[Rfam]
RNA sequence: GGAUGUGAGGGCAAUCUGGCUGCGACAUCUGUCACCCCAUUGAUUGCCAGAGUUGAUUCGGCUGAUCUGGCUGGCUAAGCAGGUGUCCGCUUCCUCCCUCACCACUCCAUGUGUGUCCCUCCCAAGGAUGUGCACUCGGUUGAAGAAGACGACCUUCCCUGGUACAGGCGGUACCGUUCAUUGCUCAUGGGUAUACGGUUGCUGUGCUCCACUGCUAGGACCUCCAGACAAGCUCAAGGUCAACUUGUAGGAGACCGUAGGGUAGUCAAGCUUCCAAGGCUGCAGACACACCCAAGUGAGGCACUACAUGUGGCAGUCUGCCAUUUUAU
Numbered sequence: 001g002g003a004u005g006u007g008a009g010g011g012c013a014a015u016c017u018g019g020c021u022g023c024g025a026c027a028u029c030u031g032u033c034a035c036c037c038c039a040u041u042g043a044u045u046g047c048c049a050g051a052g053u054u055g056a057u058u059c060g061g062c063u064g065a066u067c068u069g070g071c072u073g074g075c076u077a078a079g080c081a082g083g084u085g086u087c088c089g090c091u092u093c094c095u096c097c098c099u100c101a102c103c104a105c106u107c108c109a110u111g112u113g114u115g116u117c118c119c120u121c122c123c124a125a126g127g128a129u130g131u132g133c134a135c136u137c138g139g140u141u142g143a144a145g146a147a148g149a150c151g152a153c154c155u156u157c158c159c160u161g162g163u164a165c166a167g168g169c170g171g172u173a174c175c176g177u178u179c180a181u182u183g184c185u186c187a188u189g190g191g192u193a194u195a196c197g198g199u200u201g202c203u204g205u206g207c208u209c210c211a212c213u214g215c216u217a218g219g220a221c222c223u224c225c226a227g228a229c230a231a232g233c234u235c236a237a238g239g240u241c242a243a244c245u246u247g248u249a250g251g252a253g254a255c256c257g258u259a260g261g262g263u264a265g266u267c268a269a270g271c272u273u274c275c276a277a278g279g280c281u282g283c284a285g286a287c288a289c290a291c292c293c294a295a296g297u298g299a300g301g302c303a304c305u306a307c308a309u310g311u312g313g314c315a316g317u318c319u320g321c322c323a324u325u326u327u328a329u
Stems, first nucleotide, its partner, number of pairs: 001108003005102007014092001018090001024087009035074002037070003042067004046062003116171002118168003122139002125136001127135001140162003148157002201271003207265002210262001212260004222253004228248005294329001296327001298324001300322003303317003307313001

This 329-nucleotide sequence from Melopsittacus undulatus belongs to the Rfam family "7SK RNA". Its Rfam clan is "7SK clan". The family's consensus secondary structure is taken from published work. A search with the family's covariance model found it, with a score of 284 bits. Taxonomically the source falls in Melopsittacus (Eukaryota, Euteleostomi, Archelosauria, Psittaciformes). 7SK was discovered as an abundant small nuclear RNA in the mid-70s but a possible function has only recently been suggested. Two independent studies have found that 7SK RNA binds the CDK9/cyclin T complex (known as elongation factor P-TEFb). P-TEFb activates transcription by phosphorylating the C-terminal domain of RNA polymerase II. This process is negatively regulated by the 7SK RNP. The secondary structure of 7SK RNA shown here was proposed by Wasserman and Steitz on the basis of chemical modification and enzymatic cleavage experiments.